A member of the RNA family "Small nucleolar RNA snoR109" from Citrus sinensis, 82 nucleotides long. The base pairs follow the family's consensus structure, which was predicted with WAR. The family has 6 seed sequences and 680 matches in Rfam 15.1. Lineage of the source: Eukaryota > Streptophyta > Tracheophyta > Aurantioideae > Citrus.

RNA sequence: CGGCUAGCCUGUUAAAUUUAGAGGCUGGCCGUUUUGUGUUUUGGUGCUCUCUGGACAUUUAAACAGCUAGCCUCUUAAAUUU
Numbered sequence: 001c002g003g004c005u006a007g008c009c010u011g012u013u014a015a016a017u018u019u020a021g022a023g024g025c026u027g028g029c030c031g032u033u034u035u036g037u038g039u040u041u042u043g044g045u046g047c048u049c050u051c052u053g054g055a056c057a058u059u060u061a062a063a064c065a066g067c068u069a070g071c072c073u074c075u076u077a078a079a080u081u082u
Base pairs, nucleotide, nucleotide: 020075021074022073023072024071025070026069027068028067029066031064032063033062034061036058037057038056